[Rfam]
The family of this 79-nucleotide RNA from Paenibacillus ginsengarvi is "ZMP/ZTP riboswitch aptamer (pfl RNA motif)".
Rfam 15.1 lists 3,295 matches to the family in 2,545 species.
A search with the family's covariance model found it, with a score of 65 bits.
NCBI's taxonomy places the organism under Bacteria, Bacillota, Caryophanales, Paenibacillaceae, Paenibacillus.
A reference for the family is Ren et al. (2015), "Global RNA Fold and Molecular Recognition for a pfl Riboswitch Bound to ZMP, a Master Regulator of One-Carbon Metabolism", Structure.
Its family is annotated with one-carbon metabolic process and regulation of purine nucleotide biosynthetic process in the Gene Ontology.

RNA sequence: UAAAAUAUGUGUGACUGGCGUAACGUAGGUAACUACGGGGGAGCACAUAUUUCAUAAGCCGUACGCCUGGGCAAAGUAU
Numbered sequence: 001u002a003a004a005a006u007a008u009g010u011g012u013g014a015c016u017g018g019c020g021u022a023a024c025g026u027a028g029g030u031a032a033c034u035a036c037g038g039g040g041g042a043g044c045a046c047a048u049a050u051u052u053c054a055u056a057a058g059c060c061g062u063a064c065g066c067c068u069g070g071g072c073a074a075a076g077u078a079u
Stems, first nucleotide, its partner, number of pairs: 003052010015040002017067005025036004058072003